The family of this 150-nucleotide sequence from Ornithinicoccus hortensis is "ALIL pseudoknot". Lineage of the source: Bacteria > Bacillati > Actinomycetes > Intrasporangiaceae > Ornithinicoccus. The family's RNA type in Rfam is cis-regulatory element.

RNA sequence: AGCUUUUUUCGCGGCCGCGGAGCUCGACCGCAAGAUCAAGUAGAAGUUCCUACCGCGGUGCUGGUCGACUACAUCGACCAGCACCGCGACCGUUUCGGGGUCGAGCCGAUCUGUGCCGUGCUGACCGAGGCCGGCACCAAGAUCGCCCCG
Numbered sequence: 001a002g003c004u005u006u007u008u009u010c011g012c013g014g015c016c017g018c019g020g021a022g023c024u025c026g027a028c029c030g031c032a033a034g035a036u037c038a039a040g041u042a043g044a045a046g047u048u049c050c051u052a053c054c055g056c057g058g059u060g061c062u063g064g065u066c067g068a069c070u071a072c073a074u075c076g077a078c079c080a081g082c083a084c085c086g087c088g089a090c091c092g093u094u095u096c097g098g099g100g101u102c103g104a105g106c107c108g109a110u111c112u113g114u115g116c117c118g119u120g121c122u123g124a125c126c127g128a129g130g131c132c133g134g135c136a137c138c139a140a141g142a143u144c145g146c147c148c149c150g
Stems, first nucleotide, its partner, number of pairs: 016057005096150005107145002110142003